[Rfam]
RNA: RNase MRP
Organism: Cavia porcellus
RNA sequence: GAUCGCGCUGAAGGCCUGUUUCCUAGGCUACACUCGGGGGACUUGUUCCUCAUCUAGUUGCCUAGGGGAAAGUCCCCGGACCUUGGGCAGAAAGUGCCACGUGCUCACGCACGUAGACCCUCCCCGCCCUUCACACUUAGCCCGCCAAGAAGCAAACCCGCUCUUUGGAACGGGAAUGCUGAGCGGCGUGUUGCGGGACGUCAUCCGUCAGCUGUCAUAGUGACGCAGGCAGUGCGCACAUGGGUGCGCACCAACCAAACGGGGCUCAUUCUCAGCGCGGC
Numbered sequence: 001g002a003u004c005g006c007g008c009u010g011a012a013g014g015c016c017u018g019u020u021u022c023c024u025a026g027g028c029u030a031c032a033c034u035c036g037g038g039g040g041a042c043u044u045g046u047u048c049c050u051c052a053u054c055u056a057g058u059u060g061c062c063u064a065g066g067g068g069a070a071a072g073u074c075c076c077c078g079g080a081c082c083u084u085g086g087g088c089a090g091a092a093a094g095u096g097c098c099a100c101g102u103g104c105u106c107a108c109g110c111a112c113g114u115a116g117a118c119c120c121u122c123c124c125c126g127c128c129c130u131u132c133a134c135a136c137u138u139a140g141c142c143c144g145c146c147a148a149g150a151a152g153c154a155a156a157c158c159c160g161c162u163c164u165u166u167g168g169a170a171c172g173g174g175a176a177u178g179c180u181g182a183g184c185g186g187c188g189u190g191u192u193g194c195g196g197g198a199c200g201u202c203a204u205c206c207g208u209c210a211g212c213u214g215u216c217a218u219a220g221u222g223a224c225g226c227a228g229g230c231a232g233u234g235c236g237c238a239c240a241u242g243g244g245u246g247c248g249c250a251c252c253a254a255c256c257a258a259a260c261g262g263g264g265c266u267c268a269u270u271c272u273c274a275g276c277g278c279g280g281c
Stems, first nucleotide, its partner, number of pairs: 003280009014230006022066007037051005071266002074264004086098004099114006116202003123197005132190003142186004160171001162169002232251006
Dot-bracket structure: ..(((((((((..((((((..(((((((........(((((.....)))))........)))))))....[[.[[[[........((((.....))))((((((....)))))).(((....(((((....(((.......((((..............(.((....)).)...........)))).)))..)))))..)))......................)))))).((((((........)))))).........]]]]]].....))))))))).